[Rfam]
RNA sequence: GGGUUGCGAUGAAGCGAAAGGUUGCUCCUUAAGGGAAUUUUCGUGGAGAAUGUCUUGAUCAAUGAAUCGGGCGACAA
Numbered sequence: 001g002g003g004u005u006g007c008g009a010u011g012a013a014g015c016g017a018a019a020g021g022u023u024g025c026u027c028c029u030u031a032a033g034g035g036a037a038u039u040u041u042c043g044u045g046g047a048g049a050a051u052g053u054c055u056u057g058a059u060c061a062a063u064g065a066a067u068c069g070g071g072c073g074a075c076a077a
Stems, first nucleotide, its partner, number of pairs: 014044003018041004025035003051076004057072001059070002
The record is a 77-nucleotide RNA from Serpentinicella alkaliphila, which matches "S10-Clostridia ribosomal protein leader" in Rfam. The literature on the family includes a 2020 paper in BMC Microbiol by Eckert and Weinberg, "Discovery of 20 novel ribosomal leader candidates in bacteria and archaea". The source organism's lineage runs through Bacteria, Bacillota, Clostridia, Peptostreptococcales and Serpentinicella.